The family of this 427-nucleotide RNA sequence from Candidatus Nitrospira nitrificans is "Bacterial RNase P class A". Its family is annotated with dimeric ribonuclease P complex, tRNA processing and ribonuclease P activity in the Gene Ontology. The source organism's lineage runs through Bacteria, Nitrospiria, Nitrospirales, Nitrospiraceae and Nitrospira. Rfam classes the family as a ribozyme.

RNA sequence: GUGGAAGAUUGGAUGGUCGCUCGGUGGGUUUCCAUCGAGAGGAAAGUCCGGACUCCAUGGGCAGGGCGCUGGGUAACUCCCAGGCGGAGCAAUCCGACACCAGCACCACAGAAAUCAAACCGCCGAUGGCCAAAGCGACGAGAUCCCAUCUGGUCGUUGCGGCUCAGGUAAGGGUGAAACGGUGGGGUAAGAGCCCACCGCGGUGGUGGUGACAUCACCGGCAUGGUAAGCGUCGCCCGGUGCAAGGCCAAAUAGGAAGACAUAUGCAGCGCUCCUCACGGACGGUUGCAUGCCGAUCGGCCCGGUCGAGGUCUUCGGGUAGGUCGCUUGAGGUUCGAGGUAACUCGAGUCCCAGAGAAAUGAUCAUCCAGGCAAAGAGGGCAACUUCUUUGCGGGACAGAAUCCGGCUUAUAGGUCUUCCGCUCAC
Numbered sequence: 001g002u003g004g005a006a007g008a009u010u011g012g013a014u015g016g017u018c019g020c021u022c023g024g025u026g027g028g029u030u031u032c033c034a035u036c037g038a039g040a041g042g043a044a045a046g047u048c049c050g051g052a053c054u055c056c057a058u059g060g061g062c063a064g065g066g067c068g069c070u071g072g073g074u075a076a077c078u079c080c081c082a083g084g085c086g087g088a089g090c091a092a093u094c095c096g097a098c099a100c101c102a103g104c105a106c107c108a109c110a111g112a113a114a115u116c117a118a119a120c121c122g123c124c125g126a127u128g129g130c131c132a133a134a135g136c137g138a139c140g141a142g143a144u145c146c147c148a149u150c151u152g153g154u155c156g157u158u159g160c161g162g163c164u165c166a167g168g169u170a171a172g173g174g175u176g177a178a179a180c181g182g183u184g185g186g187g188u189a190a191g192a193g194c195c196c197a198c199c200g201c202g203g204u205g206g207u208g209g210u211g212a213c214a215u216c217a218c219c220g221g222c223a224u225g226g227u228a229a230g231c232g233u234c235g236c237c238c239g240g241u242g243c244a245a246g247g248c249c250a251a252a253u254a255g256g257a258a259g260a261c262a263u264a265u266g267c268a269g270c271g272c273u274c275c276u277c278a279c280g281g282a283c284g285g286u287u288g289c290a291u292g293c294c295g296a297u298c299g300g301c302c303c304g305g306u307c308g309a310g311g312u313c314u315u316c317g318g319g320u321a322g323g324u325c326g327c328u329u330g331a332g333g334u335u336c337g338a339g340g341u342a343a344c345u346c347g348a349g350u351c352c353c354a355g356a357g358a359a360a361u362g363a364u365c366a367u368c369c370a371g372g373c374a375a376a377g378a379g380g381g382c383a384a385c386u387u388c389u390u391u392g393c394g395g396g397a398c399a400g401a402a403u404c405c406g407g408c409u410u411a412u413a414g415g416u417c418u419u420c421c422g423c424u425c426a427c
Base pairs, nucleotide, nucleotide: 001423002422003421004420005419006418007417008416009415010414011412012368013367014366015365016364017363018362020039021038022037023036024035025034026033027032044410045409046408048407049406050405051404052403053242055240056239059303060302061301062300064238065237066236067235068234069083070082071081072080073079084098085096086095087094088093099233100232103231104230105227106226107225120173121172122169123168124167128163130161181199182198183197184196185195186194200222201220202219203218204217205216206215207214208213246325247324248323249322256316257315258314259313260312261311294308295307296306297305298304332351333350334349335348336347337346338345339344